[Rfam]
tRNA: a 66-nucleotide RNA.
RNA sequence: GUCCUUGUAGUAUAAACUAAUACACCAGUCUUGUAAACCGGAGAUGAAAACCUUUUUCCAAGGACA
Number, nucleotide and partner (000 for none) at each position: 001g065002u064003c063004c062005u061006u060007g059008u000009a000010g023011u022012a021013u020014a000015a000016a000017c000018u000019a000020a013021u012022a011023c010024a000025c041026c040027a000028g038029u037030c000031u000032u000033g000034u000035a000036a000037a029038c028039c000040g026041g025042a000043g000044a000045u000046g058047a057048a056049a055050a000051c000052c000053u000054u000055u049056u048057u047058c046059c007060a006061a005062g004063g003064a002065c001066a000